[Rfam]
RNA sequence: UGGACAGUAUCUUUUGUAGAACUGUACCUGCUAUUUUAUAACUACAACCUACAUGUACGCCUUGAUCAGGUAUCUGACAGGGACGGAAAA
Numbered sequence: 001u002g003g004a005c006a007g008u009a010u011c012u013u014u015u016g017u018a019g020a021a022c023u024g025u026a027c028c029u030g031c032u033a034u035u036u037u038a039u040a041a042c043u044a045c046a047a048c049c050u051a052c053a054u055g056u057a058c059g060c061c062u063u064g065a066u067c068a069g070g071u072a073u074c075u076g077a078c079a080g081g082g083a084c085g086g087a088a089a090a
Stems, first nucleotide, its partner, number of pairs: 002028002004025005010020002058085002060082005066077003
pan motif: a 90-nucleotide RNA sequence from Tetzosporium hominis. It scores 58 bits against the family's covariance model.